The family of this 292-nucleotide sequence from Duganella sp. CF517 is "5' ureB small RNA". Rfam 15.1 lists 4,812 matches to the family in 4,480 species. The base pairs follow the family's consensus structure, which was predicted with mfold. The source organism's lineage runs through Bacteria, Pseudomonadati, Burkholderiales, Oxalobacteraceae and Duganella.

[Rfam]
RNA sequence: CUUCCUCGAUCUGCUGCGGGCAGAUGAAGUGGAUGUGGGUGUCGACGCCGCCGGCGGUGACGAUUUUGCCUUCACCGGCGAUGAUCUCGGUGGCGCCGGCGAUGAUCAUCGUCACGCCGGGCUGGAUGUCCGGGUUGCCGGCCUUGCCGAUGGCGGCGAUCAUGCCGUCCCUGAUGCCGAUGUCCGCCUUGACGAUGCCCCAGUGGUCGAUGAUGAUCGCGUUGGUGAUGACGGUGUCCAUCACCAGCGGAUCGGCGCGCACGCGCUGCGACUGGCCCAUGCCGUCGCGGAU
Numbered sequence: 001c002u003u004c005c006u007c008g009a010u011c012u013g014c015u016g017c018g019g020g021c022a023g024a025u026g027a028a029g030u031g032g033a034u035g036u037g038g039g040u041g042u043c044g045a046c047g048c049c050g051c052c053g054g055c056g057g058u059g060a061c062g063a064u065u066u067u068g069c070c071u072u073c074a075c076c077g078g079c080g081a082u083g084a085u086c087u088c089g090g091u092g093g094c095g096c097c098g099g100c101g102a103u104g105a106u107c108a109u110c111g112u113c114a115c116g117c118c119g120g121g122c123u124g125g126a127u128g129u130c131c132g133g134g135u136u137g138c139c140g141g142c143c144u145u146g147c148c149g150a151u152g153g154c155g156g157c158g159a160u161c162a163u164g165c166c167g168u169c170c171c172u173g174a175u176g177c178c179g180a181u182g183u184c185c186g187c188c189u190u191g192a193c194g195a196u197g198c199c200c201c202a203g204u205g206g207u208c209g210a211u212g213a214u215g216a217u218c219g220c221g222u223u224g225g226u227g228a229u230g231a232c233g234g235u236g237u238c239c240a241u242c243a244c245c246a247g248c249g250g251a252u253c254g255g256c257g258c259g260c261a262c263g264c265g266c267u268g269c270g271a272c273u274g275g276c277c278c279a280u281g282c283c284g285u286c287g288c289g290g291a292u
Base pairs, nucleotide, nucleotide: 002291003290005289007287008286009285012158013157014156015155016154017153018076019075022072023071030053031052032051034050035049037048039046040045057069058068059067077148078147081144083142085140090138091137092136093135094134096133097132098130099129100128103124105123107121109119111117112116164276165275166274167273171270174267177263185221186220187219190216200209225258230253231252234244235243236242